[Rfam]
A member of the RNA family "MIR390 microRNA precursor family" from Anisodus acutangulus, 118 nucleotides long. It scores 95 bits against the family's covariance model.
RNA sequence: AUGGAGAAUCUAUAAAGCUCAGGAGGGAUAGCACCAUGGGGACUAUCUUCAUGAGUUUAUACACUUGUUUUAAGCUUAUCUAUAGCGCUAUCCAUCCUGAGUUUCAUGGCUUCUUCAU
Number, nucleotide and partner (000 for none) at each position: 001a000002u000003g000004g000005a000006g000007a000008a000009u000010c109011u000012a000013u000014a000015a000016a103017g102018c101019u100020c099021a098022g097023g096024a095025g000026g093027g092028a091029u090030a089031g088032c087033a000034c085035c000036a000037u000038g000039g000040g000041g000042a000043c000044u000045a000046u000047c000048u000049u000050c000051a000052u000053g000054a000055g000056u000057u000058u000059a000060u000061a000062c000063a000064c000065u000066u000067g000068u000069u000070u000071u000072a000073a000074g000075c000076u000077u000078a000079u000080c000081u000082a000083u000084a000085g034086c000087g032088c031089u030090a029091u028092c027093c026094a000095u024096c023097c022098u021099g020100a019101g018102u017103u016104u000105c000106a000107u000108g000109g010110c000111u000112u000113c000114u000115u000116c000117a000118u000